About this RNA:
Histone 3' UTR stem-loop: a 45-nucleotide RNA sequence from Drosophila mojavensis. Pairs were carried over by alignment from the consensus structure, which is taken from published work. Rfam's curators write: The mRNAs of metazoan histone genes lack a poly-A tail. 3' end processing occurs at a site between a highly conserved stem-loop (modelled by this family) and a purine rich region around 20 nts downstream (the histone downstream element, or HDE). NCBI's taxonomy places the organism under Eukaryota, Eumetazoa, Pancrustacea, Acalyptratae, mojavensis species complex.

RNA sequence: CCAACGGCCCUUUUCAGGGCCACCAAAGCACUACUCAAAGAGUUU
Numbered sequence: 001c002c003a004a005c006g007g008c009c010c011u012u013u014u015c016a017g018g019g020c021c022a023c024c025a026a027a028g029c030a031c032u033a034c035u036c037a038a039a040g041a042g043u044u045u
Base pairs, nucleotide, nucleotide: 006021007020008019009018010017011016